[Rfam]
RNA sequence: GCCGGGCUUGGUGGCGCAAGCCUGUGACCCAAGUGGGGGCAUCAAGGUGACUGGACGUGGGCUGAGCUCAGAAGGCUGGGUCUGGAUUAGCAAAUUGCUGGUCCGCCCGCUCCAAGUGGAGAGUUGAGCCAUGCGACCCAUUCUAAAGCUUGGGCCUUGUGGUUCCUAAAGCGGAGGGCAAUGCGUGAGGCUGGUUUCACAGAGCAGCGAAAACCUCCCGCUCUCUGCGGUGGAAGGAUUACGGGCCGGUGCUUCUCAGGCCCUUUAACACCCAAUGAGCUGGCCACAUCGAACGGUCACUUUU
Numbered sequence: 001g002c003c004g005g006g007c008u009u010g011g012u013g014g015c016g017c018a019a020g021c022c023u024g025u026g027a028c029c030c031a032a033g034u035g036g037g038g039g040c041a042u043c044a045a046g047g048u049g050a051c052u053g054g055a056c057g058u059g060g061g062c063u064g065a066g067c068u069c070a071g072a073a074g075g076c077u078g079g080g081u082c083u084g085g086a087u088u089a090g091c092a093a094a095u096u097g098c099u100g101g102u103c104c105g106c107c108c109g110c111u112c113c114a115a116g117u118g119g120a121g122a123g124u125u126g127a128g129c130c131a132u133g134c135g136a137c138c139c140a141u142u143c144u145a146a147a148g149c150u151u152g153g154g155c156c157u158u159g160u161g162g163u164u165c166c167u168a169a170a171g172c173g174g175a176g177g178g179c180a181a182u183g184c185g186u187g188a189g190g191c192u193g194g195u196u197u198c199a200c201a202g203a204g205c206a207g208c209g210a211a212a213a214c215c216u217c218c219c220g221c222u223c224u225c226u227g228c229g230g231u232g233g234a235a236g237g238a239u240u241a242c243g244g245g246c247c248g249g250u251g252c253u254u255c256u257c258a259g260g261c262c263c264u265u266u267a268a269c270a271c272c273c274a275a276u277g278a279g280c281u282g283g284c285c286a287c288a289u290c291g292a293a294c295g296g297u298c299a300c301u302u303u304u
Stems, first nucleotide, its partner, number of pairs: 001040003004023007028037003044303010056291002058288002061284004068278003074272002078263008089253002093250001098249008107237002111234004116228009126165008135156001137154004143148001166171001173218005182211001184209003191202003
RNA: Plant signal recognition particle RNA